RNA sequence: AAAGAGGAGGAGCCAUAACGCCCUCUUGCUAGAACAAGAAGGCGGUUAUUGCUCCUUU
Numbered sequence: 001a002a003a004g005a006g007g008a009g010g011a012g013c014c015a016u017a018a019c020g021c022c023c024u025c026u027u028g029c030u031a032g033a034a035c036a037a038g039a040a041g042g043c044g045g046u047u048a049u050u051g052c053u054c055c056u057u058u
Stems, first nucleotide, its partner, number of pairs: 006058008015049003024039005

This 58-nucleotide sequence from Lobelia urens belongs to the Rfam family "Plastid-psbA-4 3UTR RNA". The literature on the family includes a 2023 paper in Plant Commun by Richter et al., "Retrograde signaling in plants: A critical review focusing on the GUN pathway and beyond". Taxonomically the source falls in Lobelia (Eukaryota, Streptophyta, Mesangiospermae, Asterales). The base pairs follow the family's consensus structure, which was predicted with LocARNA. It is one of the family's seed sequences. The family is grouped with related families in Rfam's "Plastid-psbA 3UTR RNA clan". Plastid psbA-4 is a non-coding RNA (ncRNA) present in plastids.